RNA sequence: CGGAAACCGCCGCCUAAUCGCCCGAGGGCGAGCCGGGGAACCACGUACGUGGGGUGAAUCCGCGCCACCCGCGCGGUAGGGGCCACUUCCGUCCCGAACCCGUCAGCUAACCCGGUCGGCGGCCGACGGAAGGAAGG
Numbered sequence: 001c002g003g004a005a006a007c008c009g010c011c012g013c014c015u016a017a018u019c020g021c022c023c024g025a026g027g028g029c030g031a032g033c034c035g036g037g038g039a040a041c042c043a044c045g046u047a048c049g050u051g052g053g054g055u056g057a058a059u060c061c062g063c064g065c066c067a068c069c070c071g072c073g074c075g076g077u078a079g080g081g082g083c084c085a086c087u088u089c090c091g092u093c094c095c096g097a098a099c100c101c102g103u104c105a106g107c108u109a110a111c112c113c114g115g116u117c118g119g120c121g122g123c124c125g126a127c128g129g130a131a132g133g134a135a136g137g
Stems, first nucleotide, its partner, number of pairs: 011121004018031003032116006042051002052101003060076004079095004
This 137-nucleotide RNA sequence from Krasilnikovia cinnamomea belongs to the Rfam family "c-di-AMP riboswitch aptamer (ydaO/yuaA leader)". From the family's description: This family represents a conserved RNA structure found upstream of the ydaO and yuaA genes in Bacillus subtilis and related genes in other bacteria. The ydaO/yuaA element is thought to act as a genetic 'off' switch for the ydaO and yuaA genes in its native state. Pairs were carried over by alignment from the consensus structure. Taxonomically the source falls in Krasilnikovia (Bacteria, Bacillati, Actinomycetes, Micromonosporales).